[Rfam]
RNA sequence: GAGGGUAGGCCCCUCGGAUAGGGUGUACAGGCACCGUUUCCAAACCACCCCUAUGCUGCUGCGGUUAAAAGCUGUGGUAGUGAGCGAUAGCGGGAAAAGGCAUCAAAGAAGGUGUCAGGU
Numbered sequence: 001g002a003g004g005g006u007a008g009g010c011c012c013c014u015c016g017g018a019u020a021g022g023g024u025g026u027a028c029a030g031g032c033a034c035c036g037u038u039u040c041c042a043a044a045c046c047a048c049c050c051c052u053a054u055g056c057u058g059c060u061g062c063g064g065u066u067a068a069a070a071g072c073u074g075u076g077g078u079a080g081u082g083a084g085c086g087a088u089a090g091c092g093g094g095a096a097a098a099g100g101c102a103u104c105a106a107a108g109a110a111g112g113u114g115u116c117a118g119g120u
Stems, first nucleotide, its partner, number of pairs: 001015005016041003020037001023034004046119001048094002051090004055081002058078003062074004099116006